[Rfam]
RNA sequence: UGGCCCAGUGCGGCAGCACACUCAGUGACGGGAAAGUGGUCGCUCCCGACGUAACUGGGUAAAAACGAACUUUGUGAGACCAA
Numbered sequence: 001u002g003g004c005c006c007a008g009u010g011c012g013g014c015a016g017c018a019c020a021c022u023c024a025g026u027g028a029c030g031g032g033a034a035a036g037u038g039g040u041c042g043c044u045c046c047c048g049a050c051g052u053a054a055c056u057g058g059g060u061a062a063a064a065a066c067g068a069a070c071u072u073u074g075u076g077a078g079a080c081c082a083a
Stems, first nucleotide, its partner, number of pairs: 001062001003060004009053004019027003029048005
RNA: Tick-borne Flavivirus exoribonuclease-resistant RNA element